Listeria sRNA sbrA: a 69-nucleotide sequence from Jeotgalibacillus sp. R-1-5s-1. The literature on the family includes a 2009 paper in Nature by Toledo-Arana et al., "The Listeria transcriptional landscape from saprophytism to virulence". The base pairs follow the family's consensus structure, which was predicted with WAR. The source organism's lineage runs through Bacteria, Bacilli, Caryophanales, Caryophanaceae and Jeotgalibacillus.
[Rfam]
RNA sequence: AAGAAUCUAGAUUUAACCCCUAAACUCCCUAGAUUUCUUGGCGGCCGUCCAUGACAGCCGUCCUUUUUU
Dot-bracket structure: ...((((((....................))))))....((((((.(((...))).)))))).......